RNA: Small nucleolar RNA snoR27
RNA sequence: UAUGGAUCAAUGAUUUGAAAAAUUACGCGCUGUCUGGCUGCAAUUUCUCUCGAAGGAUUGAUGACAACUAAGUAAUUCUGAGAUCCCAA
Numbered sequence: 001u002a003u004g005g006a007u008c009a010a011u012g013a014u015u016u017g018a019a020a021a022a023u024u025a026c027g028c029g030c031u032g033u034c035u036g037g038c039u040g041c042a043a044u045u046u047c048u049c050u051c052g053a054a055g056g057a058u059u060g061a062u063g064a065c066a067a068c069u070a071a072g073u074a075a076u077u078c079u080g081a082g083a084u085c086c087c088a089a
Stems, first nucleotide, its partner, number of pairs: 001089001004086004